The record is a 109-nucleotide RNA from Listeria monocytogenes, which matches "SAM riboswitch aptamer (S box leader)" in Rfam.
[Rfam]
RNA sequence: CUCUUAUCCAGAGCGGUAGAGGGACUGACCCUUUGAAGCCCAGCAACCUACACAUAUAAGUGAAAGGUGCUAAUCUGUUGCAGGAGUAUUAUCUUCUGAACGAUGAGAG
Numbered sequence: 001c002u003c004u005u006a007u008c009c010a011g012a013g014c015g016g017u018a019g020a021g022g023g024a025c026u027g028a029c030c031c032u033u034u035g036a037a038g039c040c041c042a043g044c045a046a047c048c049u050a051c052a053c054a055u056a057u058a059a060g061u062g063a064a065a066g067g068u069g070c071u072a073a074u075c076u077g078u079u080g081c082a083g084g085a086g087u088a089u090u091a092u093c094u095u096c097u098g099a100a101c102g103a104u105g106a107g108a109g
Base pairs, nucleotide, nucleotide: 001109002108003107004106005105006104007103008102013041015040016039017038021031022030023029025080027078028076042071043070044069045068047067048066049063081098082097083096084095085094086093